[Rfam]
RNA sequence: GGGUACACUUAGAGCCCCGUACGGCUCGUGUUAAUAGUGCUGUCUUUGGCCGGGCAGCAUGGUUAGGACAAGC
Number, nucleotide and partner (000 for none) at each position: 001g017002g016003g015004u014005a000006c000007a000008c000009u000010u000011a000012g000013a000014g004015c003016c002017c001018c000019g000020u000021a000022c000023g000024g000025c000026u000027c000028g000029u000030g000031u066032u065033a064034a063035u062036a000037g060038u059039g058040c057041u056042g055043u054044c053045u052046u000047u000048g000049g000050c000051c000052g045053g044054g043055c042056a041057g040058c039059a038060u037061g000062g035063u034064u033065a032066g031067g000068a000069c000070a000071a000072g000073c000
A member of the RNA family "L13-Bacteroidia ribosomal protein leader" from Prevotella multiformis, 73 nucleotides long.
For this family Rfam cites "Discovery of 20 novel ribosomal leader candidates in bacteria and archaea" (Eckert and Weinberg, BMC Microbiol, 2020).